[Rfam]
Nucleotides: 266
Base pairs, nucleotide, nucleotide: 001266002265003264004263005262006261008057010055011054012030013029014028015027017025019023034053035052036051037050038049062259063258064257065256066255067254068253072249073248074247075246076245078242079241080240081239082238083237084236085235086234087233091230092229094225095224096223097222098221102219103218105216106215107214113211114210115209116208117207118206119205120204121203122199123198124197125196126195128190129189131188132187133186134185135184137180138179139178140177141176147172148171149170150169155164156163157162
Number, partner (000 for none) and nucleotide at each position: 001266c002265c003264g004263c005262g006261c007000u008057a009000a010055g011054c012030g013029g014028g015027g016000a017025g018000c019023u020000g021000g022000c023019g024000a025017u026000g027015c028014c029013c030012u031000g032000u033000a034053c035052c036051u037050g038049c039000g040000a041000u042000c043000g044000c045000c046000u047000c048000a049038g050037c051036a052035g053034g054011g055010c056000c057008u058000a059000g060000a061000u062259c063258c064257c065256c066255g067254c068253c069000c070000g071000a072249g073248g074247c075246g076245g077000u078242c079241c080240g081239g082238g083237u084236u085235c086234g087233g088000u089000a090000g091230a092229a093000g094225c095224c096223g097222g098221u099000g100000u101000c102219g103218c104000c105216g106215g107214c108000g109000u110000u111000g112000a113211u114210g115209g116208u117207u118206g119205g120204g121203u122199c123198c124197c125196g126195g127000g128190c129189a130000a131188u132187g133186a134185g135184g136000c137180c138179c139178c140177g141176u142000g143000a144000a145000c146000c147172g148171u149170g150169u151000c152000a153000g154000g155164a156163c157162c158000g159000g160000g161000a162157g163156g164155u165000a166000g167000c168000a169150g170149c171148a172147c173000u174000a175000a176141g177140c178139g179138g180137g181000u182000a183000a184135c185134c186133u187132c188131a189129u190128g191000u192000g193000c194000a195126c196125c197124g198123g199122g200000g201000c202000g203121g204120c205119c206118c207117g208116g209115c210114c211113g212000g213000a214107g215106c216105c217000g218103g219102c220000a221098g222097c223096c224095g225094g226000a227000a228000g229092u230091u231000c232000g233087c234086c235085g236084g237083g238082u239081c240080c241079g242078g243000g244000u245076u246075c247074g248073u249072c250000g251000a252000c253068g254067g255066c256065g257064g258063g259062g260000u261006g262005c263004g264003c265002g266001g
Overview: The family of this 266-nucleotide RNA from Rubrobacter taiwanensis is "Bacterial large signal recognition particle RNA". Clan: SRP clan. It is annotated as a non-coding RNA gene.